[Rfam]
RNA sequence: ACUUCCUAAGCCGGAACGAAAAGUAGCUCUGUCGCGGGCAAAUUUGGAGUGAUACAAAUUUGCGGCAAUACAUAGGUACUUUUGGCUUUGUGGUUGUGAUGUUGUGUUUGCAAGUUAUCUGGGAAACCAGACUUUGUAGCAUAUGCUACAGUUUUUUUUCACUUCCUGUACAUUUACCCUGUCUGUCCAUAGUGAUUUUUUUAUGCACCGCAAUUGCGGUGCUUUUUUCU
Number, nucleotide and partner (000 for none) at each position: 001a000002c000003u000004u000005c000006c000007u000008a000009a087010g086011c085012c084013g000014g000015a083016a082017c000018g000019a000020a000021a081022a080023g079024u078025a077026g000027c075028u074029c000030u072031g071032u070033c000034g000035c000036g000037g000038g000039c000040a000041a000042a000043u000044u000045u000046g000047g000048a000049g000050u000051g000052a000053u000054a000055c000056a000057a000058a000059u000060u000061u000062g000063c000064g000065g000066c000067a000068a000069u000070a032071c031072a030073u000074a028075g027076g000077u025078a024079c023080u022081u021082u016083u015084g012085g011086c010087u009088u000089u000090g000091u000092g000093g000094u000095u000096g000097u000098g000099a000100u000101g000102u000103u000104g000105u000106g000107u000108u000109u000110g000111c000112a000113a000114g000115u000116u000117a000118u131119c130120u129121g128122g127123g000124a000125a000126a000127c122128c121129a120130g119131a118132c000133u000134u000135u150136g149137u148138a147139g146140c145141a000142u000143a000144u000145g140146c139147u138148a137149c136150a135151g000152u000153u000154u000155u000156u000157u000158u000159u000160c000161a000162c000163u000164u000165c000166c000167u000168g000169u000170a202171c000172a200173u000174u000175u000176a000177c000178c000179c000180u000181g000182u000183c000184u000185g000186u000187c000188c000189a000190u000191a000192g000193u000194g000195a000196u000197u000198u000199u000200u172201u000202u170203a000204u000205g222206c221207a220208c219209c218210g217211c216212a000213a000214u000215u000216g211217c210218g209219g208220u207221g206222c205223u000224u000225u000226u000227u000228u000229c000230u000